[Rfam]
Nucleotides: 191
Base pairs, nucleotide, nucleotide: 027054028053029052030051031050061190062189064187065186081185082184084182085181087178088177089176096133097132098131099130100129105125106124107123108122109121110120111119112118135161137160138159139158140157141156
Number, partner (000 for none) and nucleotide at each position: 001000a002000u003000a004000u005000a006000c007000c008000a009000c010000a011000g012000u013000u014000g015000g016000u017000a018000u019000a020000g021000a022000u023000a024000c025000a026000u027054u028053c029052c030051u031050c032000a033000u034000c035000g036000c037000a038000c039000c040000c041000u042000c043000g044000g045000c046000u047000g048000a049000a050031g051030a052029g053028g054027a055000c056000c057000c058000u059000a060000g061190u062189u063000g064187g065186u066000c067000c068000u069000a070000a071000a072000a073000c074000g075000g076000u077000c078000u079000g080000a081185g082184g083000u084182a085181g086000a087178g088177g089176g090000g091000u092000u093000u094000u095000a096133g097132u098131c099130g100129g101000u102000a103000g104000g105125u106124c107123c108122g109121a110120g111119g112118a113000c114000u115000u116000c117000u118112u119111c120110c121109u122108c123107g124106g125105g126000a127000a128000u129100c130099c131098g132097a133096c134000a135161c136000u137160a138159c139158c140157c141156a142000g143000u144000c145000g146000u147000a148000c149000g150000g151000a152000c153000g154000g155000c156141u157140g158139g159138g160137u161135g162000u163000c164000u165000u166000c167000u168000g169000a170000a171000g172000a173000u174000u175000u176089c177088c178087c179000c180000u181085c182084u183000u184082c185081c186065a187064c188000g189062a190061a191000a